[Rfam]
RNA sequence: UUCAGCAGUACUAAAGUGCUUAUAGUGCAGGUAGUGUUUCUACCUUAUCUACUGCAAUGUAAGCACUUGAAGUACUUCUAA
Numbered sequence: 001u002u003c004a005g006c007a008g009u010a011c012u013a014a015a016g017u018g019c020u021u022a023u024a025g026u027g028c029a030g031g032u033a034g035u036g037u038u039u040c041u042a043c044c045u046u047a048u049c050u051a052c053u054g055c056a057a058u059g060u061a062a063g064c065a066c067u068u069g070a071a072g073u074a075c076u077u078c079u080a081a
Stems, first nucleotide, its partner, number of pairs: 005078001007076002010073003014068011026056003030053005

The family of this 81-nucleotide sequence from Oryzias latipes is "mir-17 microRNA precursor family". Gene Ontology terms of the family: RISC complex and miRNA-mediated post-transcriptional gene silencing. NCBI's taxonomy places the organism under Eukaryota, Chordata, Gnathostomata, Ovalentaria, Oryzias. Rfam describes the family as follows. This family represents the microRNA (miRNA) precursor mir-17, family, which includes mir-20, mir-91, and mir-103. miRNAs are transcribed as ~70nt precursors (modelled here) and subsequently processed by the Dicer enzyme to give a ~22nt product. In this case the mature sequence comes from the 3' arm of the precursor. The extents of the hairpin precursors are not generally known and are estimated based on hairpin prediction. Pairs were carried over by alignment from the consensus structure, which was predicted with RNAalifold.